[Rfam]
The record is a 135-nucleotide RNA from Erythrocercus mccallii, which matches "Small nucleolar RNA SNORA33" in Rfam. It is annotated as an H/ACA-box small nucleolar RNA. ACA33 is a member of the H/ACA class of snoRNA that guide the sites of modification of uridines to pseudouridines.

RNA sequence: AAGCCAGUUCAGUGUGUCCGUUUAACUUUGAAAUGUUUUGCGGAGCAUACUUCACGCUAACACUGGCAAAGUAAAGCCACAGUACGAGCCUUGAAGACUUUGUGGUCUCUGAGGUCCCAAGAGAUGGCUACAUCU
Numbered sequence: 001a002a003g004c005c006a007g008u009u010c011a012g013u014g015u016g017u018c019c020g021u022u023u024a025a026c027u028u029u030g031a032a033a034u035g036u037u038u039u040g041c042g043g044a045g046c047a048u049a050c051u052u053c054a055c056g057c058u059a060a061c062a063c064u065g066g067c068a069a070a071g072u073a074a075a076g077c078c079a080c081a082g083u084a085c086g087a088g089c090c091u092u093g094a095a096g097a098c099u100u101u102g103u104g105g106u107c108u109c110u111g112a113g114g115u116c117c118c119a120a121g122a123g124a125u126g127g128c129u130a131c132a133u134c135u
Base pairs, nucleotide, nucleotide: 003067004066005065006064007063017044018043019042020041021040076128077127078126079125088115089114090113091112092111093110096107097106098105
Taxonomically the source falls in Erythrocercus (Eukaryota, Sarcopterygii, Neoaves, Passeriformes). Rfam 15.1 lists 1,176 matches to the family in 522 species. The match comes from Rfam's covariance-model search (88 bits).